About this RNA: Shown here is a 96-nucleotide sequence from Lachnoclostridium phytofermentans, a member of the family "SAM riboswitch aptamer (S box leader)". Rfam links the family to the GO term regulation of gene expression. The organism belongs to Lachnoclostridium phytofermentans, within Bacteria. The SAM riboswitch is found upstream of a number of genes which code for proteins involved in methionine or cysteine biosynthesis in Gram-positive bacteria.
RNA sequence: CUCUUAUUCAGAGUGACGGAGAGUAAAGACUCAGUGAAGUCACGGCAACCCCCUAUGGGAAGGUGCUAAGUUGAGCGAGCAAUCGAACAAUGAGAG
Number, nucleotide and partner (000 for none) at each position: 001c096002u095003c094004u093005u092006a091007u090008u089009c000010a000011g000012a000013g043014u042015g041016a040017c039018g000019g000020a000021g032022a031023g030024u000025a000026a000027a000028g000029a072030c023031u022032c021033a000034g000035u000036g000037a000038a000039g017040u016041c015042a014043c013044g067045g066046c065047a064048a000049c063050c062051c059052c058053c057054u000055a000056u000057g053058g052059g051060a000061a000062g050063g049064u047065g046066c045067u044068a000069a000070g000071u000072u029073g000074a000075g000076c085077g084078a083079g000080c000081a000082a000083u078084c077085g076086a000087a000088c000089a008090a007091u006092g005093a004094g003095a002096g001